Caenorhabditis snoRNA ceN59: a 143-nucleotide RNA from Caenorhabditis latens.
It scores 98 bits against the family's covariance model.
Its family is annotated with nucleolus and RNA processing in the Gene Ontology.

[Rfam]
RNA sequence: UCCGGGCAGUUUGAGUUGAUUCGCUCUUCCCCGAUAGAGCUUGGGUCAAAUUACUGUCCGAAAAUCGUAGAGAAGAGUGCACCUUCAAAAAGUGAACUGCUUUCUUUACGGUUUACUUACACAUUGCCGCUCUUCCCACAUAU
Numbered sequence: 001u002c003c004g005g006g007c008a009g010u011u012u013g014a015g016u017u018g019a020u021u022c023g024c025u026c027u028u029c030c031c032c033g034a035u036a037g038a039g040c041u042u043g044g045g046u047c048a049a050a051u052u053a054c055u056g057u058c059c060g061a062a063a064a065u066c067g068u069a070g071a072g073a074a075g076a077g078u079g080c081a082c083c084u085u086c087a088a089a090a091a092g093u094g095a096a097c098u099g100c101u102u103u104c105u106u107u108a109c110g111g112u113u114u115a116c117u118u119a120c121a122c123a124u125u126g127c128c129g130c131u132c133u134u135c136c137c138a139c140a141u142a143u
Stems, first nucleotide, its partner, number of pairs: 003060008016049007023040005072135002075133001076131003
The family has 3 seed sequences and 14 matches in Rfam 15.1.